[Rfam]
RNA sequence: GUCCUGAAUGAGGGCAAGAUGUUGGCAUAGCUGUUGAAGUGAAGGCUCUGCUAUGCCAGUGACUUGCCAUCCUUCACUUCC
Numbered sequence: 001g002u003c004c005u006g007a008a009u010g011a012g013g014g015c016a017a018g019a020u021g022u023u024g025g026c027a028u029a030g031c032u033g034u035u036g037a038a039g040u041g042a043a044g045g046c047u048c049u050g051c052u053a054u055g056c057c058a059g060u061g062a063c064u065u066g067c068c069a070u071c072c073u074u075c076a077c078u079u080c081c
Stems, first nucleotide, its partner, number of pairs: 005076004010071002013068006020061002023058009
Rfam assigns this 81-nucleotide RNA from Oryzias latipes to the family "mir-31 microRNA precursor family". The sequence is in the family's curated seed alignment. Pairs were carried over by alignment from the consensus structure, which was predicted with RNAalifold. The family is grouped with related families in Rfam's "mir-31 microRNA precursor family". The source organism's lineage runs through Eukaryota, Craniata, Teleostomi, Ovalentaria and Oryzias. The literature on the family includes a 2003 paper in Dev Cell by Aravin et al., "The small RNA profile during Drosophila melanogaster development".